[Rfam]
RNA: MIR1435 microRNA precursor family
RNA sequence: UAGUUUUGCCCUACAUCAAACUUCUCUAAUUUUGACCAAGUUUUUAGAAAAAUACAUUAGCAUCUACAAGUUCAAUCAAAUGAUUGUCAAGACAAAUUUCAUGAAGAAUUUAAUGAAAAUAAUUUGUUAUUCUAGAUGUUGAUGUAUUUUUCUAUAAACUUGGUCAAAGUUAGACAAGUUUUGUUGGCGUAGAUCACC
Numbered sequence: 001u002a003g004u005u006u007u008g009c010c011c012u013a014c015a016u017c018a019a020a021c022u023u024c025u026c027u028a029a030u031u032u033u034g035a036c037c038a039a040g041u042u043u044u045u046a047g048a049a050a051a052a053u054a055c056a057u058u059a060g061c062a063u064c065u066a067c068a069a070g071u072u073c074a075a076u077c078a079a080a081u082g083a084u085u086g087u088c089a090a091g092a093c094a095a096a097u098u099u100c101a102u103g104a105a106g107a108a109u110u111u112a113a114u115g116a117a118a119a120u121a122a123u124u125u126g127u128u129a130u131u132c133u134a135g136a137u138g139u140u141g142a143u144g145u146a147u148u149u150u151u152c153u154a155u156a157a158a159c160u161u162g163g164u165c166a167a168a169g170u171u172a173g174a175c176a177a178g179u180u181u182u183g184u185u186g187g188c189g190u191a192g193a194u195c196a197c198c
Stems, first nucleotide, its partner, number of pairs: 005193005011187003015184002018181006025174002031168005045154008055144003059140008068131001073126003